[Rfam]
Notes:
Shown here is a 78-nucleotide RNA from Schistosoma japonicum, a member of the family "mir-3492 microRNA precursor family". The match comes from Rfam's covariance-model search (51 bits). Rfam 15.1 lists 21,496 matches to the family in 13 species. Rfam links the family to the GO terms miRNA-mediated post-transcriptional gene silencing and RISC complex. The source organism's lineage runs through Eukaryota, Spiralia, Digenea, Schistosomatidae and Schistosoma.
RNA sequence: AGCUUCUUGAAUCCGCGCUGAUAUUUUGUCAAACACUGACCAAUCAGGACUGAUGGGACUCCCGAGAUAAGUGAAGUG
Numbered sequence: 001a002g003c004u005u006c007u008u009g010a011a012u013c014c015g016c017g018c019u020g021a022u023a024u025u026u027u028g029u030c031a032a033a034c035a036c037u038g039a040c041c042a043a044u045c046a047g048g049a050c051u052g053a054u055g056g057g058a059c060u061c062c063c064g065a066g067a068u069a070a071g072u073g074a075a076g077u078g
Stems, first nucleotide, its partner, number of pairs: 002077005008071001011068003016064002020061002024058007